[Rfam]
RNA sequence: UCAACGCAACAUCGUUUGAGUAUCCUGAAAACGGGCUUUUCAGAAUGGUGUUGCCGUUUACAUUUUUAGGAGUGCAUAGUGGCCCGUAUAGCAGGCAUUAACAUUCCUGAU
Numbered sequence: 001u002c003a004a005c006g007c008a009a010c011a012u013c014g015u016u017u018g019a020g021u022a023u024c025c026u027g028a029a030a031a032c033g034g035g036c037u038u039u040u041c042a043g044a045a046u047g048g049u050g051u052u053g054c055c056g057u058u059u060a061c062a063u064u065u066u067u068a069g070g071a072g073u074g075c076a077u078a079g080u081g082g083c084c085c086g087u088a089u090a091g092c093a094g095g096c097a098u099u100a101a102c103a104u105u106c107c108u109g110a111u
Stems, first nucleotide, its partner, number of pairs: 006054008024095003032086004040110003
Notes
A member of the RNA family "Alpha operon ribosome binding site" from Sodalis ligni, 111 nucleotides long. NCBI's taxonomy places the organism under Bacteria, Pseudomonadota, Enterobacterales, Bruguierivoracaceae, Sodalis. The bacterial alpha operon ribosome binding site is surrounded by this complex pseudoknotted structure. The literature on the family includes a 2001 paper in J Biol Chem by Schlax et al., "Translational repression of the Escherichia coli alpha operon mRNA: importance of an mRNA conformational switch and a ternary entrapment complex". It is annotated as a cis-regulatory element.